[Rfam]
RNA sequence: GGCCUAAAGCGUCCGUAGCUGGCCGAGCAAGUCUGUCGGGAAAUCCAGUAGCUCAACUACUGGACGUCCGGUGGAAACUGUUCGGCUUGGGACCGGAAGAUCCAAGGGGUACGUCCGGGGUAGGAGUGAAAUCCUGUAAUCCUGGACGGACCACCGAUGGCGAAAGCACCUUGGAAGCACGGAUCCGACAGUGAGGGACGAAAGCUAGGGUCUCGAACCGGAUUAGAUACCCGGGUAGUCCUAGCCGUUAACGAUGCCCGCUAGGUUUGGCGCAGGCUACGAGCCUGCGCUGUGCCGAAGUGAAGACGUAAGCGGGCCGCCUGGGAAGUACGUCCGCAAGGAUGAAACUUAAAGGAAU
Number, nucleotide and partner (000 for none) at each position: 001g321002g320003c319004c000005u000006a000007a000008a000009g318010c000011g199012u198013c197014c196015g000016u193017a000018g192019c191020u190021g000022g086023c085024c084025g083026a082027g081028c080029a000030a079031g078032u075033c074034u073035g072036u071037c070038g069039g068040g067041a000042a000043a000044u000045c063046c062047a061048g060049u059050a058051g057052c000053u000054c000055a000056a000057c051058u050059a049060c048061u047062g046063g045064a000065c000066g000067u040068c039069c038070g037071g036072u035073g034074g033075a032076a000077a000078c031079u030080g028081u027082u026083c025084g024085g023086c022087u000088u000089g000090g186091g185092a184093c182094c181095g180096g000097a000098a000099g000100a000101u175102c174103c173104a172105a171106g170107g169108g152109g151110u000111a000112c148113g147114u146115c145116c144117g143118g142119g141120g000121u000122a000123g134124g133125a132126g000127u000128g000129a000130a000131a000132u125133c124134c123135u000136g000137u000138a000139a000140u000141c119142c118143u117144g116145g115146a114147c113148g112149g000150a000151c109152c108153a000154c000155c000156g000157a000158u000159g000160g167161c166162g000163a000164a000165a000166g161167c160168a000169c107170c106171u105172u104173g103174g102175a101176a000177g000178c000179a000180c095181g094182g093183a000184u092185c091186c090187g000188a000189c000190a020191g019192u018193g016194a000195g000196g014197g013198a012199c011200g000201a000202a000203a000204g245205c244206u243207a242208g241209g240210g000211u000212c000213u000214c238215g000216a000217a000218c234219c233220g232221g231222a000223u000224u000225a000226g000227a000228u000229a000230c000231c221232c220233g219234g218235g000236u000237a000238g214239u000240c209241c208242u207243a206244g205245c204246c000247g000248u000249u000250a000251a000252c000253g000254a000255u000256g317257c316258c315259c314260g313261c312262u000263a000264g296265g295266u294267u000268u292269g291270g290271c289272g288273c287274a286275g285276g284277c283278u000279a000280c000281g000282a000283g277284c276285c275286u274287g273288c272289g271290c270291u269292g268293u000294g266295c265296c264297g000298a000299a000300g307301u306302g000303a000304a000305g000306a301307c300308g000309u000310a000311a000312g261313c260314g259315g258316g257317c256318c009319g003320c002321c001322u000323g350324g349325g348326a000327a000328g000329u000330a000331c000332g343333u342334c341335c340336g000337c000338a000339a000340g335341g334342a333343u332344g000345a000346a000347a000348c325349u324350u323351a000352a000353a000354g000355g000356a000357a000358u000
This 358-nucleotide part of an RNA from Halomicrobium zhouii belongs to the Rfam family "Archaeal small subunit ribosomal RNA". Rfam's curators put it in the seed alignment. Rfam links the family to the GO terms structural constituent of ribosome and ribosome. The family is grouped with related families in Rfam's "SSU clan". The family's consensus secondary structure is taken from published work. A reference for the family is Yusupov et al. (2001), "Crystal structure of the ribosome at 5.5 A resolution", Science. NCBI's taxonomy places the organism under Archaea, Methanobacteriati, Halobacteria, Halobacteriales, Halomicrobium.